[Rfam]
Small nucleolar RNA SNORA9: a 132-nucleotide RNA sequence from Sorex araneus. Rfam 15.1 lists 1,202 matches to the family in 518 species. By type it is an H/ACA-box small nucleolar RNA. The source organism's lineage runs through Eukaryota, Deuterostomia, Teleostomi, Soricidae and Sorex. Clan: SNORA9 clan. Rfam links the family to the GO terms RNA processing and nucleolus. Rfam's curators write: ACA9 is a member of the H/ACA class of snoRNA that guide the sites of modification of uridines to pseudouridines. Pairs were carried over by alignment from the consensus structure, which was predicted with PFOLD.
RNA sequence: UGGCAAGCCUCCAGCGUGCUGGGGUCUGGAGUGACCCUGUGCAUUCCUACAGUGCUUGCAAGAACAUUAUGAAAUGGUUUGAAGCCUUGCCCUGCUCCAUUCAGAGCAAGGUUAUAGAAAUUUCAGACAAAU
Numbered sequence: 001u002g003g004c005a006a007g008c009c010u011c012c013a014g015c016g017u018g019c020u021g022g023g024g025u026c027u028g029g030a031g032u033g034a035c036c037c038u039g040u041g042c043a044u045u046c047c048u049a050c051a052g053u054g055c056u057u058g059c060a061a062g063a064a065c066a067u068u069a070u071g072a073a074a075u076g077g078u079u080u081g082a083a084g085c086c087u088u089g090c091c092c093u094g095c096u097c098c099a100u101u102c103a104g105a106g107c108a109a110g111g112u113u114a115u116a117g118a119a120a121u122u123u124c125a126g127a128c129a130a131a132u
Stems, first nucleotide, its partner, number of pairs: 003059006017043003022037005070125005085111006092104003